[Rfam]
RNA sequence: UCUUAACAUCGGGGGAGUCGAAAGACUGAGAAAUCGACGCAAGUCAUGACCCUUUGAACCUGACGCGGGUAAUGCCGCCGUAGGGAAGAUGAAGAAAACUUAGC
Numbered sequence: 001u002c003u004u005a006a007c008a009u010c011g012g013g014g015g016a017g018u019c020g021a022a023a024g025a026c027u028g029a030g031a032a033a034u035c036g037a038c039g040c041a042a043g044u045c046a047u048g049a050c051c052c053u054u055u056g057a058a059c060c061u062g063a064c065g066c067g068g069g070u071a072a073u074g075c076c077g078c079c080g081u082a083g084g085g086a087a088g089a090u091g092a093a094g095a096a097a098a099c100u101u102a103g104c
Stems, first nucleotide, its partner, number of pairs: 007091004011053004016047001017026003059084004065078004
The family of this 104-nucleotide RNA sequence from Cloacibacillus evryensis is "TPP riboswitch aptamer (THI element)". Pairs were carried over by alignment from the consensus structure, which is taken from published work. From the family's description: Vitamin B(1) in its active form thiamin pyrophosphate (TPP) is an essential coenzyme that is synthesised by coupling of pyrimidine and thiazole moieties in bacteria. The previously detected thiamin-regulatory element, thi box was extended, resulting in a new, highly conserved RNA secondary structure, the THI element, which is widely distributed in eubacteria and also occurs in some archaea. Analysis of operon structures identified a large number of new candidate thiamin-regulated genes, mostly transporters, in various prokaryotic organisms. The THI element is a riboswitch that directly binds to TPP to regulate gene expression through a variety of mechanisms in archaea, bacteria and eukaryotes. through a variety of mechanisms in archaea, bacteria and eukaryotes. Lineage of the source: Bacteria > Synergistota > Synergistales > Synergistaceae > Cloacibacillus evryensis.